[Rfam]
RNA sequence: AUUUAGCCCCGAUAGAAGCGACAUCCUUUUGUGGCGGGGUUCGCCACAAAAGAUAUAGUGAAUAGCGGGACAUUAC
Numbered sequence: 001a002u003u004u005a006g007c008c009c010c011g012a013u014a015g016a017a018g019c020g021a022c023a024u025c026c027u028u029u030u031g032u033g034g035c036g037g038g039g040u041u042c043g044c045c046a047c048a049a050a051a052g053a054u055a056u057a058g059u060g061a062a063u064a065g066c067g068g069g070a071c072a073u074u075a076c
Stems, first nucleotide, its partner, number of pairs: 009068003013064002018059002023054003029049008
The family of this 76-nucleotide RNA sequence from Flavobacterium bizetiae is "Flavo-1 RNA". The organism belongs to Flavobacterium, within Bacteria.